[Rfam]
A member of the RNA family "TPP riboswitch aptamer (THI element)" from Ferrimonas lipolytica, 119 nucleotides long. The match comes from Rfam's covariance-model search (67 bits). From the family's description: Vitamin B(1) in its active form thiamin pyrophosphate (TPP) is an essential coenzyme that is synthesised by coupling of pyrimidine and thiazole moieties in bacteria.

RNA sequence: GCCGCUGCCACGGGGUGUGCACAGCAGAUUAACUGAUUGCUGACUGAGAUCCGCAUUAGCGGGAACCCGUAGAACCUGAUCCGGAUAGUACCGGCGUAGGAAUGGCUGCUGAUUUUAGU
Numbered sequence: 001g002c003c004g005c006u007g008c009c010a011c012g013g014g015g016u017g018u019g020c021a022c023a024g025c026a027g028a029u030u031a032a033c034u035g036a037u038u039g040c041u042g043a044c045u046g047a048g049a050u051c052c053g054c055a056u057u058a059g060c061g062g063g064a065a066c067c068c069g070u071a072g073a074a075c076c077u078g079a080u081c082c083g084g085a086u087a088g089u090a091c092c093g094g095c096g097u098a099g100g101a102a103u104g105g106c107u108g109c110u111g112a113u114u115u116u117a118g119u
Stems, first nucleotide, its partner, number of pairs: 007106004011069004016063001017044002051062004075100004081094004